Annotation
The family of this 306-nucleotide RNA sequence from Lactuca sativa is "Plant signal recognition particle RNA". The match comes from Rfam's covariance-model search (144 bits). Taxonomically the source falls in Lactuca (Eukaryota, Tracheophyta, Magnoliopsida, Gunneridae). Pairs were carried over by alignment from the consensus structure, which is taken from published work.
RNA sequence: GUCAUUCUUCGUAUCGUUUGCCUGAAACCCAAGCGGGGGUAUCAAAGUGGGUUGGAUUAUGAUUUGGUCCAGUUUGGUUAGGUCGGGUGGUGUGUAAAUUGACUUGCUCGCUCCAAUUCGAGAGUUGGUUCAAGUGGCUUGAGCGAAGGCUUUGGGUCUCUUGGAACCUAGAGAAGGGGGGCAAUGCGUUAGGUUGGCUUCACAAAGUUGUGACAACCCCUCGCUUGUGAUAGUGGAAGGAUUACAAGUCUUGGCUAUUCAGGCCUAUAUUUCCGACUAGUCCGACUCAGAUGGAUACCCACUUUU
Numbered sequence: 001g002u003c004a005u006u007c008u009u010c011g012u013a014u015c016g017u018u019u020g021c022c023u024g025a026a027a028c029c030c031a032a033g034c035g036g037g038g039g040u041a042u043c044a045a046a047g048u049g050g051g052u053u054g055g056a057u058u059a060u061g062a063u064u065u066g067g068u069c070c071a072g073u074u075u076g077g078u079u080a081g082g083u084c085g086g087g088u089g090g091u092g093u094g095u096a097a098a099u100u101g102a103c104u105u106g107c108u109c110g111c112u113c114c115a116a117u118u119c120g121a122g123a124g125u126u127g128g129u130u131c132a133a134g135u136g137g138c139u140u141g142a143g144c145g146a147a148g149g150c151u152u153u154g155g156g157u158c159u160c161u162u163g164g165a166a167c168c169u170a171g172a173g174a175a176g177g178g179g180g181g182c183a184a185u186g187c188g189u190u191a192g193g194u195u196g197g198c199u200u201c202a203c204a205a206a207g208u209u210g211u212g213a214c215a216a217c218c219c220c221u222c223g224c225u226u227g228u229g230a231u232a233g234u235g236g237a238a239g240g241a242u243u244a245c246a247a248g249u250c251u252u253g254g255c256u257a258u259u260c261a262g263g264c265c266u267a268u269a270u271u272u273c274c275g276a277c278u279a280g281u282c283c284g285a286c287u288c289a290g291a292u293g294g295a296u297a298c299c300c301a302c303u304u305u306u
Base pairs, nucleotide, nucleotide: 001040002039003038004023007020028037029036030035044305045304046303047302048301049300050299051298052297057293060289061288063285064284066282067281069280071278072277073276074275076274077273080266081265082264083263084262086260087259089258091257092256095254101250102249103248104247105246106245108240109239112237113236114235115234118230119229120228122226123225124224125223127167129165130164131163132162133161134160136158137157138156139155140154141153142151143150144149168173176221177220178219179218180217187212188211189210194205195204196203